[Rfam]
RNA sequence: AUUGUUGACCGUGAGGAUACAAAGCUCCCUCUUCUGAUUUUAAGGUGAGGUCAAUUGCAGGCAGAAUCGAACCUAAAUUAAUCUAGCCACCACUGAGUCA
Numbered sequence: 001a002u003u004g005u006u007g008a009c010c011g012u013g014a015g016g017a018u019a020c021a022a023a024g025c026u027c028c029c030u031c032u033u034c035u036g037a038u039u040u041u042a043a044g045g046u047g048a049g050g051u052c053a054a055u056u057g058c059a060g061g062c063a064g065a066a067u068c069g070a071a072c073c074u075a076a077a078u079u080a081a082u083c084u085a086g087c088c089a090c091c092a093c094u095g096a097g098u099c100a
Stems, first nucleotide, its partner, number of pairs: 006100004
Notes: A member of the RNA family "Small nucleolar RNA R30/Z108" from Medicago truncatula, 100 nucleotides long. Rfam links the family to the GO terms RNA processing and nucleolus. The family's consensus secondary structure was predicted with PFOLD. The family has 6 seed sequences and 626 matches in Rfam 15.1. Rfam describes the family as follows. snoR30 is a C/D box small nucleolar RNA which acts as a methylation guide for 18S ribosomal RNA in plants.